[Rfam]
The record is a 150-nucleotide sequence from Carlito syrichta, which matches "U12 minor spliceosomal RNA" in Rfam. The family has 62 seed sequences and 2,106 matches in Rfam 15.1. Taxonomically the source falls in Carlito (Eukaryota, Chordata, Craniata, Eutheria).
RNA sequence: AACCCUUAAACUUAUAACUAAGGAAAAUAACAAUUUGGGGUGAUGCCCGAAUCCGCACUGCUAAUGUGAGACGAAUUUUUUAGCAGGUAAAGGUUGGCCCUAUGGUGACCCACCUACUCUGCAGGAUGCCUGGGAGUCACGAUCUGCUCA
Number, nucleotide and partner (000 for none) at each position: 001a000002a000003c000004c023005c022006u021007u020008a019009a000010a000011c000012u000013u000014a000015u000016a000017a000018c000019u008020a007021a006022g005023g004024a000025a000026a000027a000028u000029a000030a000031c000032a000033a052034u051035u050036u049037g048038g047039g046040g000041u000042g000043a000044u000045g000046c039047c038048c037049g036050a035051a034052u033053c000054c070055g000056c068057a067058c066059u000060g000061c000062u000063a000064a000065u000066g058067u057068g056069a000070g054071a000072c000073g000074a000075a000076u000077u000078u000079u000080u000081u000082a000083g000084c000085a000086g148087g147088u146089a000090a000091a145092g144093g143094u142095u141096g140097g000098c000099c000100c134101u133102a000103u000104g130105g129106u128107g127108a000109c125110c124111c000112a000113c121114c000115u000116a000117c000118u000119c000120u000121g113122c000123a000124g110125g109126a000127u107128g106129c105130c104131u000132g000133g101134g100135a000136g000137u000138c000139a000140c096141g095142a094143u093144c092145u091146g088147c087148u086149c000150a000